This 159-nucleotide RNA from Citrus unshiu belongs to the Rfam family "small nucleolar RNA snoR143". Taxonomically the source falls in Citrus (Eukaryota, Streptophyta, Euphyllophyta, rosids). A search with the family's covariance model found it, with a score of 73 bits. The base pairs follow the family's consensus structure, which was predicted with RNAalifold.
RNA sequence: UUGCACUUAAUCAUAGGCCUUUCUAAUUUAUAUUAGAGCGGCCUGAGCUAGGUGCAUAGAGAAAAUCAGUUUUACUAGCAGAUGCUAUGCAACUGGGAAGAUGGAUCCACAGGUGAAUGGCCUGCUAUGCUACUUGCCUACUAAUUCCAUCACACAUGU
Numbered sequence: 001u002u003g004c005a006c007u008u009a010a011u012c013a014u015a016g017g018c019c020u021u022u023c024u025a026a027u028u029u030a031u032a033u034u035a036g037a038g039c040g041g042c043c044u045g046a047g048c049u050a051g052g053u054g055c056a057u058a059g060a061g062a063a064a065a066u067c068a069g070u071u072u073u074a075c076u077a078g079c080a081g082a083u084g085c086u087a088u089g090c091a092a093c094u095g096g097g098a099a100g101a102u103g104g105a106u107c108c109a110c111a112g113g114u115g116a117a118u119g120g121c122c123u124g125c126u127a128u129g130c131u132a133c134u135u136g137c138c139u140a141c142u143a144a145u146u147c148c149a150u151c152a153c154a155c156a157u158g159u
Base pairs, nucleotide, nucleotide: 002056003055004054005053006052007051008050009049012047014045015044016043017042018041019040021038022037023036024035025034100151101150102149103148104147105146116135117134118132119131120130